[Rfam]
RNA sequence: AAGCCCUCUCAUACAGUCCUUCGUAUAUCCUCGAUAAUAUGGUUCGAAAGUUUCUACCAAAUCACCGUAAAUGAUUUGACUAUGAAGGCAGAAAUUCUGAUU
Numbered sequence: 001a002a003g004c005c006c007u008c009u010c011a012u013a014c015a016g017u018c019c020u021u022c023g024u025a026u027a028u029c030c031u032c033g034a035u036a037a038u039a040u041g042g043u044u045c046g047a048a049a050g051u052u053u054c055u056a057c058c059a060a061a062u063c064a065c066c067g068u069a070a071a072u073g074a075u076u077u078g079a080c081u082a083u084g085a086a087g088g089c090a091g092a093a094a095u096u097c098u099g100a101u102u
Stems, first nucleotide, its partner, number of pairs: 018088008031047004058078007
The record is a 102-nucleotide RNA sequence from Falsibacillus pallidus, which matches "Purine riboswitch aptamer" in Rfam. From the family's description: Riboswitches are metabolite binding domains within certain messenger RNAs that serve as precision sensors for their corresponding targets. Its family is annotated with purine nucleobase biosynthetic process in the Gene Ontology. It scores 84 bits against the family's covariance model.